[Rfam]
Shown here is a 138-nucleotide sequence from Sphingomonas xinjiangensis, a member of the family "Glycine riboswitch aptamer". The match comes from Rfam's covariance-model search (56 bits). Pairs were carried over by alignment from the consensus structure.
RNA sequence: UGGGCACGCGCGGGAGAGUAGGGGCGGGACCUCGGAUCGUAGCUGGCUUGCCAGCGGUUCGAUCUGAGCAACAAAAACCCCUCGCCGAAGGAGCAACCGCCCCGGAAUCUCUCAGGCACCGAGGACCGCGCGCGCACG
Numbered sequence: 001u002g003g004g005c006a007c008g009c010g011c012g013g014g015a016g017a018g019u020a021g022g023g024g025c026g027g028g029a030c031c032u033c034g035g036a037u038c039g040u041a042g043c044u045g046g047c048u049u050g051c052c053a054g055c056g057g058u059u060c061g062a063u064c065u066g067a068g069c070a071a072c073a074a075a076a077a078c079c080c081c082u083c084g085c086c087g088a089a090g091g092a093g094c095a096a097c098c099g100c101c102c103c104g105g106a107a108u109c110u111c112u113c114a115g116g117c118a119c120c121g122a123g124g125a126c127c128g129c130g131c132g133c134g135c136a137c138g
Stems, first nucleotide, its partner, number of pairs: 007132007020082004084117003087113002091111003097105002